About this RNA
Rfam assigns this 200-nucleotide RNA from Ceratopteris richardii to the family "Listeria sRNA rliA". The family's RNA type in Rfam is small RNA. The family's consensus secondary structure was predicted with RNAalifold. For this family Rfam cites "Identification of new noncoding RNAs in Listeria monocytogenes and prediction of mRNA targets" (Mandin et al., Nucleic Acids Res, 2007).
RNA sequence: AUGUAUGCAUGCUUGUAUGUAUGCAUGUAUGUAUGCAUAUGCAUGCAUGUAUGUAUAUGCAUGUUUGUAUGUAUGCAUAUGCAUACAUGUAUGCAUAUGCAUACAUGUAUGCAUAUGCAUACAUGUAUGCAUAUGCAUGCUUGUAUGCAUAUGCAUUCAUGUAUGCAUAUGCAUUCGGGUAUGCAUAUGCAUGCAUGUAU
Dot-bracket structure: (((((((((((........))))))))))).......(((((((((.((((.(((((((((............)))))))))........................((((((.((.(((((....))))).)).)))))).)))).))((((((((......))))))))........(((....)))..)))))))...